[Rfam]
RNA sequence: AUGAUGAGACUUCCGCGUGAGCGGGUCGGUGAGAACCACGGACGGGUAGACGGCCCAUGG
Numbered sequence: 001a002u003g004a005u006g007a008g009a010c011u012u013c014c015g016c017g018u019g020a021g022c023g024g025g026u027c028g029g030u031g032a033g034a035a036c037c038a039c040g041g042a043c044g045g046g047u048a049g050a051c052g053g054c055c056c057a058u059g060g
Stems, first nucleotide, its partner, number of pairs: 012057001013024004025043003029039003044056003
RNA: pemK RNA